[Rfam]
RNA sequence: GAAAGACGCGCAUUUGUUAUCAUCAUCCCUGACUUCAGAGAUGAAAUGUUUGGCCACAGUGAUGUGGCCUUUU
Numbered sequence: 001g002a003a004a005g006a007c008g009c010g011c012a013u014u015u016g017u018u019a020u021c022a023u024c025a026u027c028c029c030u031g032a033c034u035u036c037a038g039a040g041a042u043g044a045a046a047u048g049u050u051u052g053g054c055c056a057c058a059g060u061g062a063u064g065u066g067g068c069c070u071u072u073u
Stems, first nucleotide, its partner, number of pairs: 024043004029038003052069007